[Rfam]
Nucleotides: 100
Base pairs, nucleotide, nucleotide: 001100003098004097005096006095007094008093013042014041015040016039017038021031022030023029025077026076027075028074043069044068045067046066048065049064051061052060053059054058073092078089079088080087081086
Number, partner (000 for none) and nucleotide at each position: 001100c002000a003098c004097u005096c006095a007094u008093c009000c010000a011000g012000a013042g014041c015040a016039g017038c018000a019000g020000a021031g022030g023029g024000a025077u026076u027075g028074g029023c030022c031021c032000a033000a034000g035000g036000a037000a038017g039016c040015u041014g042013c043069a044068g045067c046066a047000a048065c049064c050000a051061u052060u053059c054058c055000g056000a057000u058054g059053g060052a061051a062000c063000c064049g065048g066046u067045g068044c069043u070000a071000a072000u073092u074028c075027c076026a077025a078089c079088a080087g081086c082000g083000c084000a085000a086081g087080c088079u089078g090000g091000c092073a093008g094007a095006u096005g097004a098003g099000a100001g